[Rfam]
RNA: mir-8364 microRNA precursor family
Organism: Pristionchus pacificus
RNA sequence: UCUUCAUUUCACGUGCUUUCGCAUCGGUCAGAUGGGUGAGAGAGUGUGUGAAAUGAAGAGA
Numbered sequence: 001u002c003u004u005c006a007u008u009u010c011a012c013g014u015g016c017u018u019u020c021g022c023a024u025c026g027g028u029c030a031g032a033u034g035g036g037u038g039a040g041a042g043a044g045u046g047u048g049u050g051a052a053a054u055g056a057a058g059a060g061a
Stems, first nucleotide, its partner, number of pairs: 001059007010050001012048006019041002022038001